This 136-nucleotide RNA sequence from Theobroma cacao belongs to the Rfam family "Small nucleolar RNA snoR111". For this family Rfam cites "Experimental RNomics: identification of 140 candidates for small non-messenger RNAs in the plant Arabidopsis thaliana" (Marker et al., Curr Biol, 2002). Pairs were carried over by alignment from the consensus structure, which was predicted with WAR. The match comes from Rfam's covariance-model search (46 bits).
RNA sequence: AUAAGAAUGUGAGGAGGAAGUUUAUUAGAGUGUCUCUUCAUUGAGGAAGAACAUUGAGGUAUAUUGGAAUCAAAGGCCAAGAUAUCAUUUCGGCUGUCAUUUUCAUAGAUUGAUGAUCUAUGUUGCUCGUCCACAU
Numbered sequence: 001a002u003a004a005g006a007a008u009g010u011g012a013g014g015a016g017g018a019a020g021u022u023u024a025u026u027a028g029a030g031u032g033u034c035u036c037u038u039c040a041u042u043g044a045g046g047a048a049g050a051a052c053a054u055u056g057a058g059g060u061a062u063a064u065u066g067g068a069a070u071c072a073a074a075g076g077c078c079a080a081g082a083u084a085u086c087a088u089u090u091c092g093g094c095u096g097u098c099a100u101u102u103u104c105a106u107a108g109a110u111u112g113a114u115g116a117u118c119u120a121u122g123u124u125g126c127u128c129g130u131c132c133a134c135a136u
Stems, first nucleotide, its partner, number of pairs: 006042004011036004016031001075132002078129001080127002085120001087119001093117001095115005101109002